[Rfam]
RNA sequence: AUUCCUUCCAUCGUAUAUCCUCGAUUGAUGUGGUCUCAGAUACUUCA
Numbered sequence: 001a002u003u004c005c006u007u008c009c010a011u012c013g014u015a016u017a018u019c020c021u022c023g024a025u026u027g028a029u030g031u032g033g034u035c036u037c038a039g040a041u042a043c044u045u046c047a
Stems, first nucleotide, its partner, number of pairs: 010025004032044003

Rfam assigns this 47-nucleotide sequence from Panicum hallii to the family "Plastid-ycf3 group II-D1 intron". Pairs were carried over by alignment from the consensus structure, which was predicted with LocARNA. The organism belongs to Panicum hallii, within Eukaryota. It scores 59 bits against the family's covariance model. Rfam's curators write: Plastid rpl16 is a non-coding RNA (ncRNA) recognised in plastids. It was recognised in and intronic region of a ribosome rpl16 gene.